The record is a 110-nucleotide RNA from Pyruvatibacter mobilis, which matches "Glycine riboswitch aptamer" in Rfam. A search with the family's covariance model found it, with a score of 35 bits. Taxonomically the source falls in Pyruvatibacter (Bacteria, Pseudomonadati, Alphaproteobacteria, Parvibaculaceae).
RNA sequence: CACUCUGGAAAGCAGGCCCGGGCUCUUGGUCCGGUCCUCACCGACGGAGUAAACCCGCCGCAGCCGCGAUAAACCGCAGCGGGUGAAUCUCUCAGGUCUUCGACAGAGGG
Number, nucleotide and partner (000 for none) at each position: 001c110002a000003c108004u107005c106006u105007g104008g000009a000010a000011a000012g000013c000014a038015g037016g036017c000018c000019c000020g000021g000022g000023c000024u000025c000026u000027u000028g000029g000030u000031c000032c000033g000034g000035u000036c016037c015038u014039c000040a097041c096042c095043g093044a092045c000046g000047g091048a090049g089050u000051a000052a000053a084054c083055c082056c081057g080058c079059c000060g000061c000062a000063g000064c000065c000066g000067c000068g000069a000070u000071a000072a000073a000074c000075c000076g000077c000078a000079g058080c057081g056082g055083g054084u053085g000086a000087a000088u000089c049090u048091c047092u044093c043094a000095g042096g041097u040098c000099u000100u000101c000102g000103a000104c007105a006106g005107a004108g003109g000110g001